[Rfam]
RNA sequence: GCCGAGCUUGGUAUCGCAAGCUUGAAACCCAAGCGGAGGAAAUAAGGUGGUGGGACAAAGGCCCAUUCUUCCGAGUCGGAUUCCUUGAGGUUUAACUUUGGCUUGCCCGUUCCAAGCUUAGAGUUGAGUCAUGGGGUUUGAAUGUAGACUCUGGGUUUCGUGCCUCUUAGAUUGGAGGGUACUGCAUGAGGCUAGUUUCAUAGAGCAGCGAAUAUCUCCCGCUCUUGGCAGUGGAAGGACAACAAGCUUGUUCUACUUGGAUCCUACAUGGCUUGGUUGGUUGAUCCUAACUGGACCAUUAUCUUU
Numbered sequence: 001g002c003c004g005a006g007c008u009u010g011g012u013a014u015c016g017c018a019a020g021c022u023u024g025a026a027a028c029c030c031a032a033g034c035g036g037a038g039g040a041a042a043u044a045a046g047g048u049g050g051u052g053g054g055a056c057a058a059a060g061g062c063c064c065a066u067u068c069u070u071c072c073g074a075g076u077c078g079g080a081u082u083c084c085u086u087g088a089g090g091u092u093u094a095a096c097u098u099u100g101g102c103u104u105g106c107c108c109g110u111u112c113c114a115a116g117c118u119u120a121g122a123g124u125u126g127a128g129u130c131a132u133g134g135g136g137u138u139u140g141a142a143u144g145u146a147g148a149c150u151c152u153g154g155g156u157u158u159c160g161u162g163c164c165u166c167u168u169a170g171a172u173u174g175g176a177g178g179g180u181a182c183u184g185c186a187u188g189a190g191g192c193u194a195g196u197u198u199c200a201u202a203g204a205g206c207a208g209c210g211a212a213u214a215u216c217u218c219c220c221g222c223u224c225u226u227g228g229c230a231g232u233g234g235a236a237g238g239a240c241a242a243c244a245a246g247c248u249u250g251u252u253c254u255a256c257u258u259g260g261a262u263c264c265u266a267c268a269u270g271g272c273u274u275g276g277u278u279g280g281u282u283g284a285u286c287c288u289a290a291c292u293g294g295a296c297c298a299u300u301a302u303c304u305u306u
Base pairs, nucleotide, nucleotide: 002039003038004023005022006021007020008019009018010017029036030035044305045304046303047302048301049300050299051298052297053296056293057292059288060287061285063283065281066280068279071276072275073274074273075272076271077270078264079263080262081261082260083259087256089254090253098250100248101247102246103245104244105243107238108237110236111235112234113233114232116229117228118227120225121224122223123222124221126166127165128164130162131161132160133159134158135157136156137155138154139153140152141150143148174219175218176217177216178215183212185210187208192203193202194201

Background:
A member of the RNA family "Plant signal recognition particle RNA" from Gossypium mustelinum, 306 nucleotides long. The base pairs follow the family's consensus structure, which is taken from published work.